[Rfam]
RNA sequence: GGCCAGCACUUAAUCCUCGGAUCGUCGGGCACGUACCUGCCCGGAUAAGGAAAGUGA
Numbered sequence: 001g002g003c004c005a006g007c008a009c010u011u012a013a014u015c016c017u018c019g020g021a022u023c024g025u026c027g028g029g030c031a032c033g034u035a036c037c038u039g040c041c042c043g044g045a046u047a048a049g050g051a052a053a054g055u056g057a
Base pairs, nucleotide, nucleotide: 009049010048011047012046014044026043027042028041029040030039031038
The family of this 57-nucleotide sequence is "msiK RNA". Rfam classes the family as a cis-regulatory element. The sequence is in the family's curated seed alignment. The family's consensus secondary structure is taken from published work.